[Rfam]
The family of this 72-nucleotide RNA sequence is "Actino-pnp RNA". It is one of the family's seed sequences. The family's RNA type in Rfam is cis-regulatory element.
RNA sequence: AUCGGUCCUCGGUUGUGGCUUCCGGGCCUAAAUUUUUUAAUUAAAUCCCGUGGGCUUCCAUCGAAGAUCCGU
Numbered sequence: 001a002u003c004g005g006u007c008c009u010c011g012g013u014u015g016u017g018g019c020u021u022c023c024g025g026g027c028c029u030a031a032a033u034u035u036u037u038u039a040a041u042u043a044a045a046u047c048c049c050g051u052g053g054g055c056u057u058c059c060a061u062c063g064a065a066g067a068u069c070c071g072u
Base pairs, nucleotide, nucleotide: 001072002071004069005068006067007066009064010063011062012061013060017056018055019054020053021052023050024049025048026047029043030042031041